[Rfam]
RNA sequence: GGCGCGGGAUCGGGAGAGUCCCGGCCGCUGCGGCCGGGCGCCGAAGGAGCAACCGCCCCGGAAUCUCUCAGGCAAAAGGACCGGUCUCGCGAG
Number, nucleotide and partner (000 for none) at each position: 001g000002g000003c000004g000005c000006g088007g087008g086009a085010u084011c083012g082013g081014g000015a000016g000017a000018g000019u000020c038021c037022c036023g035024g034025c033026c032027g000028c000029u000030g000031c000032g026033g025034c024035c023036g022037g021038g020039c000040g073041c072042c071043g069044a068045a000046g000047g067048a066049g065050c000051a000052a000053c061054c060055g000056c000057c000058c000059c000060g054061g053062a000063a000064u000065c049066u048067c047068u044069c043070a000071g042072g041073c040074a000075a000076a000077a000078g000079g000080a000081c013082c012083g011084g010085u009086c008087u007088c006089g000090c000091g000092a000093g000
Shown here is a 93-nucleotide sequence from Caenimonas sedimenti, a member of the family "Glycine riboswitch aptamer". The organism belongs to Caenimonas, within Bacteria.